This 99-nucleotide RNA from Carnegiea gigantea belongs to the Rfam family "mir-393 microRNA precursor family". On this family, see Kruszka et al., J Plant Physiol 2012: "Role of microRNAs and other sRNAs of plants in their changing environments". NCBI's taxonomy places the organism under Eukaryota, Embryophyta, Gunneridae, Caryophyllales, Carnegiea. Rfam links the family to the GO terms RISC complex and miRNA-mediated post-transcriptional gene silencing.

RNA sequence: GGAGGAUGAAUCCAAAGGGAUCGCAUUGAUCCCAAAACUGCUACGAUUUUCCCAUCAUAAUCUGGGGAUGGAUCAUGCAAUCCCUUUGGAUUCCUCCUU
Numbered sequence: 001g002g003a004g005g006a007u008g009a010a011u012c013c014a015a016a017g018g019g020a021u022c023g024c025a026u027u028g029a030u031c032c033c034a035a036a037a038c039u040g041c042u043a044c045g046a047u048u049u050u051c052c053c054a055u056c057a058u059a060a061u062c063u064g065g066g067g068a069u070g071g072a073u074c075a076u077g078c079a080a081u082c083c084c085u086u087u088g089g090a091u092u093c094c095u096c097c098u099u
Base pairs, nucleotide, nucleotide: 002099003098004097005096006095008093009092010091011090012089013088014087015086016085017084018083019082020081021080023078024077025076026075028074029073030072031071032070